[Rfam]
Nucleotides: 130
Stems, first nucleotide, its partner, number of pairs: 006040001008038002011035001013032002016029003067126002070122003077114004086109007094101001
Number, partner (000 for none) and nucleotide at each position: 001000a002000u003000g004000u005000a006040a007000a008038u009037g010000a011035g012000a013032g014031a015000u016029a017028u018027a019000a020000a021000u022000a023000a024000a025000a026000u027018u028017g029016u030000c031014u032013c033000a034000u035011c036000a037009u038008a039000a040006u041000g042000a043000u044000u045000a046000a047000c048000a049000g050000a051000a052000g053000g054000a055000u056000a057000a058000a059000g060000a061000a062000a063000a064000g065000a066000u067126g068125g069000c070122a071121a072120g073000a074000u075000a076000u077114a078113u079112c080111g081000u082000u083000u084000c085000a086109g087108u088107c089106g090105u091104c092103a093000u094101u095000u096000u097000u098000u099000c100000c101094a102000u103092u104091g105090a106089c107088g108087g109086u110000c111080u112079g113078a114077u115000u116000g117000u118000u119000a120072c121071u122070u123000g124000u125068c126067c127000a128000c129000a130000u